[Rfam]
RNA sequence: AGAUGAGGUAGAGGUUGCGGUUUUUAUGAGUAGGUUGAAAGAGAGUCAGAGAACUCGUUGAAUUCAGCUGGAAGGAAACAUCGCCGAAGCGCUGCAGAGCUCUGACUGCAGUAAGCUGGGACUGUAUCGAACAGGUGCAGGACUGUCAUAGCUUUAUGCUAUGUUGAACUAUCCAAUCA
Numbered sequence: 001a002g003a004u005g006a007g008g009u010a011g012a013g014g015u016u017g018c019g020g021u022u023u024u025u026a027u028g029a030g031u032a033g034g035u036u037g038a039a040a041g042a043g044a045g046u047c048a049g050a051g052a053a054c055u056c057g058u059u060g061a062a063u064u065c066a067g068c069u070g071g072a073a074g075g076a077a078a079c080a081u082c083g084c085c086g087a088a089g090c091g092c093u094g095c096a097g098a099g100c101u102c103u104g105a106c107u108g109c110a111g112u113a114a115g116c117u118g119g120g121a122c123u124g125u126a127u128c129g130a131a132c133a134g135g136u137g138c139a140g141g142a143c144u145g146u147c148a149u150a151g152c153u154u155u156a157u158g159c160u161a162u163g164u165u166g167a168a169c170u171a172u173c174c175a176a177u178c179a
Base pairs, nucleotide, nucleotide: 007173008172009171010170011169017084018083019082020081021080023078024077025076033069034068035067036066037065038064039063088117089116090115091112092111093110094109095108096107097106118144119143122140123139124138125137126136127135128134147163148162149161150160151159152158

The record is a 179-nucleotide RNA from Bacillus sp. cl95, which matches "Lysine riboswitch aptamer" in Rfam. Taxonomically the source falls in Bacillus (Bacteria, Bacillati, Bacillota, Bacillaceae). The base pairs follow the family's consensus structure, which is taken from published work.